About this RNA:
A member of the RNA family "chrB-b RNA" from Caenimonas aquaedulcis, 54 nucleotides long. A search with the family's covariance model found it, with a score of 51 bits. Lineage of the source: Bacteria > Pseudomonadati > Pseudomonadota > Burkholderiales > Caenimonas. By type it is a cis-regulatory element.
[Rfam]
RNA sequence: UGGGGACCCCGGCAGGCUCCCCGCUUCAAGACGCGAGCCGCGUCCAAGUUCUGC
Dot-bracket structure: ((((((.....[[[[[.))))))......(((((.....))))).....]]]]]
Numbered sequence: 001u002g003g004g005g006a007c008c009c010c011g012g013c014a015g016g017c018u019c020c021c022c023g024c025u026u027c028a029a030g031a032c033g034c035g036a037g038c039c040g041c042g043u044c045c046a047a048g049u050u051c052u053g054c
Stems, first nucleotide, its partner, number of pairs: 001023006012054005030044005